[Rfam]
RNA sequence: CAACAGAAUGGCUUGCAAGGGCGGUCGGCUAAUCUCCCGGAAGGGAGGUGAUGCCGUGGAGGUUAAGGACGCAUUGACGCUAAUGAUUUCAUUUGCGACUCUUGUCGUACUUAUACUUUCAUUCCAUAAACGGAAAUAGACCGCCCUCGCCAAAGGAUUCGGUCUAAUUUCCUGACUGCAUUCCCAUUAAGCCUGCCGCCCUUAAAAGCGGCUGUUGUGGAGGAGUCGUGUUCGCAGCACGGCUC
Number, nucleotide and partner (000 for none) at each position: 001c217002a216003a215004c214005a213006g212007a000008a000009u000010g193011g192012c191013u190014u189015g000016c149017a000018a147019g146020g145021g144022c000023g141024g000025u139026c000027g000028g000029c000030u051031a000032a049033u000034c047035u046036c045037c044038c043039g000040g000041a000042a000043g038044g037045g036046a035047g034048g000049u032050g000051a030052u000053g000054c000055c000056g000057u000058g120059g119060a118061g117062g116063u115064u000065a000066a000067g000068g000069a000070c000071g000072c085073a084074u000075u000076g000077a000078c000079g000080c000081u000082a000083a000084u073085g072086a000087u000088u000089u000090c000091a000092u000093u000094u000095g112096c000097g110098a000099c000100u000101c000102u000103u000104g000105u000106c000107g000108u000109a000110c097111u000112u095113a000114u000115a063116c062117u061118u060119u059120c058121a000122u000123u000124c000125c000126a000127u000128a000129a000130a000131c000132g000133g000134a000135a000136a000137u000138a000139g025140a000141c023142c000143g000144c021145c020146c019147u018148c000149g016150c000151c000152a000153a000154a000155g000156g000157a000158u000159u000160c000161g000162g000163u000164c000165u000166a000167a000168u000169u000170u000171c000172c000173u000174g000175a000176c000177u000178g000179c000180a000181u000182u000183c000184c000185c000186a000187u000188u000189a014190a013191g012192c011193c010194u000195g000196c211197c210198g209199c208200c000201c000202u000203u000204a000205a000206a000207a000208g199209c198210g197211g196212c006213u005214g004215u003216u002217g001218u000219g000220g000221a000222g000223g245224a244225g243226u242227c241228g240229u239230g238231u237232u236233c000234g000235c000236a232237g231238c230239a229240c228241g227242g226243c225244u224245c223
A member of the RNA family "BsrG" from Cohnella zeiphila, 245 nucleotides long. Pairs were carried over by alignment from the consensus structure, which was predicted with WAR. Rfam links the family to the GO terms autolysis and toxin activity. On this family, see Saito et al., Gene 2008: "Novel small RNA-encoding genes in the intergenic regions of Bacillus subtilis". From the family's description: bsrE, bsrG and bsrH pair through intermolecular interactions with antisense sRNAs. They form type I toxin/antitoxin system that includes an mRNA encoding for a short, toxic peptide (bsrE, bsrG and bsrH) and an antitoxin that is comprised of an antisense RNA. bsrG encodes a 39-amino-acid toxin, and the 180 nucleotide antisense sRNA called SR4 acts as the antitoxin (they overlap by 123 nucleotides). SR4 interaction with the 3'UTR of bsrG RNA promotes bsrG degradation and inhibits its translation. BsrG interferes with cell envelope biosynthesis, causes membrane invaginations and delocalisation of the cell wall synthesis and initiates autolysis. bsrE RNA encodes 30 amino-acid toxin peptide. The organism belongs to Cohnella, within Bacteria.